[Rfam]
RNA sequence: GUCGGAUACGGUGACAUGGCCCCGAAAACUUAUGCGGGAAUGUUUGUUGGGGCAUUGUGCGCCCUUGCCGGUGUCCUUACAAUCGCACUUCCGGUUCCUGUGAUAGUUUCAAAU
Numbered sequence: 001g002u003c004g005g006a007u008a009c010g011g012u013g014a015c016a017u018g019g020c021c022c023c024g025a026a027a028a029c030u031u032a033u034g035c036g037g038g039a040a041u042g043u044u045u046g047u048u049g050g051g052g053c054a055u056u057g058u059g060c061g062c063c064c065u066u067g068c069c070g071g072u073g074u075c076c077u078u079a080c081a082a083u084c085g086c087a088c089u090u091c092c093g094g095u096u097c098c099u100g101u102g103a104u105a106g107u108u109u110c111a112a113a114u
Stems, first nucleotide, its partner, number of pairs: 001114002005110001008107002011104001014101003018097002021094001037077002040074001049063002